[Rfam]
ASpks TB sRNA: a 75-nucleotide RNA from Streptomyces poonensis.
RNA sequence: CUUGACGGACCCCAGCCACAGCGGCCGGUCGUCCUCACGCUCCUGGCCGUACGUGGCGAGCAGUGCCUCGGCCUC
Numbered sequence: 001c002u003u004g005a006c007g008g009a010c011c012c013c014a015g016c017c018a019c020a021g022c023g024g025c026c027g028g029u030c031g032u033c034c035u036c037a038c039g040c041u042c043c044u045g046g047c048c049g050u051a052c053g054u055g056g057c058g059a060g061c062a063g064u065g066c067c068u069c070g071g072c073c074u075c
Base pairs, nucleotide, nucleotide: 015025016024017023032070038065039064043060044059047056048055049054

Record summary:
By type it is an antisense RNA. A reference for the family is Arnvig and Young (2009), "Identification of small RNAs in Mycobacterium tuberculosis", Mol Microbiol.